[Rfam]
RNA sequence: AUCGUUCAUCCUUUCAAAGUUAACUUUCCUCAUUGAAAGGACGGAAGUAGGGAGUUAUCCCGAAGGAACGCGCC
Dot-bracket structure: ..(((((.(((((((((...............)))))))))..[.....(((......)))....)))))]...
About this RNA:
This 74-nucleotide sequence from Synechococcales cyanobacterium M55_K2018_004 belongs to the Rfam family "Glutamine riboswitch aptamer (glnA leader)". It scores 57 bits against the family's covariance model.